The record is a 95-nucleotide RNA from Medicago truncatula, which matches "MIR2587 microRNA precursor family" in Rfam. The match comes from Rfam's covariance-model search (88 bits). Rfam links the family to the GO terms miRNA-mediated post-transcriptional gene silencing and RISC complex. Taxonomically the source falls in Medicago (Eukaryota, Mesangiospermae, Fabaceae, Trifolieae). Pairs were carried over by alignment from the consensus structure, which was predicted with RNAalifold. The family has 5 seed sequences and 242 matches in Rfam 15.1.
RNA sequence: GUGUCAUGGUCAUUGUUGACUGUUCAUAUGACCCAUGCAAUUGCGUUGCAGCUUGUGUGGGGGGUUAUAUAACGGUCAACAGAGACCCUUGACAU
Numbered sequence: 001g002u003g004u005c006a007u008g009g010u011c012a013u014u015g016u017u018g019a020c021u022g023u024u025c026a027u028a029u030g031a032c033c034c035a036u037g038c039a040a041u042u043g044c045g046u047u048g049c050a051g052c053u054u055g056u057g058u059g060g061g062g063g064g065u066u067a068u069a070u071a072a073c074g075g076u077c078a079a080c081a082g083a084g085a086c087c088c089u090u091g092a093c094a095u
Stems, first nucleotide, its partner, number of pairs: 001095006008087004013082012026070009036059004043052001